[Rfam]
RNA sequence: UAGUAGAUGCACCCUGACUCCUUCCUCAGCUACUCGCUGGGGAUUUUUUUU
Number, nucleotide and partner (000 for none) at each position: 001u000002a000003g012004u011005a000006g000007a000008u000009g000010c000011a004012c003013c000014c000015u000016g000017a000018c000019u000020c000021c000022u000023u043024c042025c041026u040027c039028a038029g037030c036031u000032a000033c000034u000035c000036g030037c029038u028039g027040g026041g025042g024043a023044u000045u000046u000047u000048u000049u000050u000051u000
Description: Nitrogen stress-induced RNA 1: a 51-nucleotide sequence from Moorena producens. The base pairs follow the family's consensus structure. By type it is a small RNA. The organism belongs to Moorena producens, within Bacteria.